The family of this 78-nucleotide RNA from Halomicronema hongdechloris is "CyVA-1 RNA". The family's RNA type in Rfam is small RNA. A search with the family's covariance model found it, with a score of 61 bits. The family's consensus secondary structure is taken from published work.
RNA sequence: UUGUCAUCGCAGGUGUUCUGCUGCUUGACCUGUUAAUUGUUGCCUGAAGGAGAACGGUGUCAGGGCAACGAGUGACUC
Numbered sequence: 001u002u003g004u005c006a007u008c009g010c011a012g013g014u015g016u017u018c019u020g021c022u023g024c025u026u027g028a029c030c031u032g033u034u035a036a037u038u039g040u041u042g043c044c045u046g047a048a049g050g051a052g053a054a055c056g057g058u059g060u061c062a063g064g065g066c067a068a069c070g071a072g073u074g075a076c077u078c
Stems, first nucleotide, its partner, number of pairs: 003076004009033004038070008